The record is a 133-nucleotide RNA sequence, which matches "Small nucleolar RNA SNORA84" in Rfam. The sequence is in the family's curated seed alignment. A reference for the family is Marker et al. (2002), "Experimental RNomics: identification of 140 candidates for small non-messenger RNAs in the plant Arabidopsis thaliana", Curr Biol.
[Rfam]
RNA sequence: GCCCUGUGGUUGCUGGAGGCUGUUGUGUAGGUACAGCUUUCUAGUGGAUACAAUGGGCAAGAGAAAUCCUUUGAUUUAUGCAUGGUAGCUGUUUCUUCUCAGCAGCUGCCAUAGCCCGGUCAUUGGCACAUUA
Numbered sequence: 001g002c003c004c005u006g007u008g009g010u011u012g013c014u015g016g017a018g019g020c021u022g023u024u025g026u027g028u029a030g031g032u033a034c035a036g037c038u039u040u041c042u043a044g045u046g047g048a049u050a051c052a053a054u055g056g057g058c059a060a061g062a063g064a065a066a067u068c069c070u071u072u073g074a075u076u077u078a079u080g081c082a083u084g085g086u087a088g089c090u091g092u093u094u095c096u097u098c099u100c101a102g103c104a105g106c107u108g109c110c111a112u113a114g115c116c117c118g119g120u121c122a123u124u125g126g127c128a129c130a131u132u133a
Base pairs, nucleotide, nucleotide: 001058002057003056004055007050008049010047011046012045013044014043015042016041017040019037020036021035022034023033069125072122073121074120075119076118080115081114082112083111084110085109087107088106089105090104091103092102093101